[Rfam]
RNA sequence: CGACCCAAGGCAGAAGGUGAGAGUUCUGCCGAGGGUCUGACCACAACCCACCUACAAAAGAGGUGAACUAUGGCUAU
Number, nucleotide and partner (000 for none) at each position: 001c000002g037003a036004c035005c034006c033007a000008a000009g030010g029011c028012a027013g026014a025015a024016g000017g000018u000019g000020a000021g000022a000023g000024u015025u014026c013027u012028g011029c010030c009031g000032a000033g006034g005035g004036u003037c002038u000039g000040a000041c073042c072043a071044c000045a000046a000047c000048c000049c065050a064051c063052c062053u061054a000055c000056a000057a000058a000059a000060g000061a053062g052063g051064u050065g049066a000067a000068c000069u000070a000071u043072g042073g041074c000075u000076a000077u000

Rfam assigns this 77-nucleotide RNA sequence from Aquabacterium soli to the family "R1162-like plasmid antisense RNA". The family's consensus secondary structure was predicted with PFOLD. The literature on the family includes a 1986 paper in Nucleic Acids Res by Kim and Meyer, "Copy-number of broad host-range plasmid R1162 is regulated by a small RNA". A search with the family's covariance model found it, with a score of 55 bits. Rfam's curators write: The copy-number of the broad host-range plasmid R1162 is controlled by the amounts of two proteins, encoded by cotranscribed genes comprising a region of the plasmid called RepI. RepI is negatively regulated by a 75 base RNA that is complementary to a segment of the RepI message. Taxonomically the source falls in Aquabacterium (Bacteria, Pseudomonadati, Burkholderiales, Sphaerotilaceae).